[Rfam]
RNA sequence: GUUGCAAGUUAGAGGCCACAGCAGAAGCGCUUAUGGCGUGGCCUGUCAGAUCCUGAUGAAUCUGCAAAUUCUGCU
Numbered sequence: 001g002u003u004g005c006a007a008g009u010u011a012g013a014g015g016c017c018a019c020a021g022c023a024g025a026a027g028c029g030c031u032u033a034u035g036g037c038g039u040g041g042c043c044u045g046u047c048a049g050a051u052c053c054u055g056a057u058g059a060a061u062c063u064g065c066a067a068a069u070u071c072u073g074c075u
Stems, first nucleotide, its partner, number of pairs: 014043004020075007027039003047064005053058001

This 75-nucleotide RNA sequence from Crocodylus porosus belongs to the Rfam family "Mammalian CPEB3 ribozyme". Lineage of the source: Eukaryota > Teleostomi > Tetrapoda > Crocodylia > Crocodylus. Rfam links the family to the GO term RNA nuclease activity. A search with the family's covariance model found it, with a score of 57 bits.